The record is a 132-nucleotide sequence from Sclerurus mexicanus, which matches "Small nucleolar RNA SNORA77" in Rfam. The base pairs follow the family's consensus structure, which was predicted with RNAalifold. Rfam 15.1 lists 843 matches to the family in 607 species.
[Rfam]
RNA sequence: GCAGACUCACUCUGUGCUGAACUGCAGCCUUCAGUUCAGGUGCUUUUCUGUCUGCAAGAGUAAUGGCUCACACGAGUGACGAUGGCCUUCUUUCCUGUAGAAGGCUGUUACAGCUGCUGUUGAGACAUAGCU
Numbered sequence: 001g002c003a004g005a006c007u008c009a010c011u012c013u014g015u016g017c018u019g020a021a022c023u024g025c026a027g028c029c030u031u032c033a034g035u036u037c038a039g040g041u042g043c044u045u046u047u048c049u050g051u052c053u054g055c056a057a058g059a060g061u062a063a064u065g066g067c068u069c070a071c072a073c074g075a076g077u078g079a080c081g082a083u084g085g086c087c088u089u090c091u092u093u094c095c096u097g098u099a100g101a102a103g104g105c106u107g108u109u110a111c112a113g114c115u116g117c118u119g120u121u122g123a124g125a126c127a128u129a130g131c132u
Base pairs, nucleotide, nucleotide: 001055002054003053004052005051006050014043015042016041017039018038019037020036022034023033024032068123069122070121076114077113081109084106085105086104087103088102
About the family: ACA63 (SNORA77) is a member of the H/ACA class of snoRNAs that guide the sites of modification of uridines to pseudouridines. This snoRNA was identified by computational screening and its expression in mouse experimentally verified by Northern blot and primer extension analysis. ACA63 is proposed to guide the pseudouridylation of 18S rRNA U814.